This 79-nucleotide RNA sequence from Audreyjarvisvirus WRP3 belongs to the Rfam family "skipping-rope RNA".
RNA sequence: AUUAACUGAGGACAGAACAGGCAACUGUCACACCCUAGUGGUUUAAAGAGAUGUGGGAAAUGUCAACCUACCAGUUAAU
Numbered sequence: 001a002u003u004a005a006c007u008g009a010g011g012a013c014a015g016a017a018c019a020g021g022c023a024a025c026u027g028u029c030a031c032a033c034c035c036u037a038g039u040g041g042u043u044u045a046a047a048g049a050g051a052u053g054u055g056g057g058a059a060a061u062g063u064c065a066a067c068c069u070a071c072c073a074g075u076u077a078a079u
Base pairs, nucleotide, nucleotide: 001079002078003077004076005075006074007073008072011029012028013027014026015025020064021063022062023061031048032042033041034040053071054070055069056068057067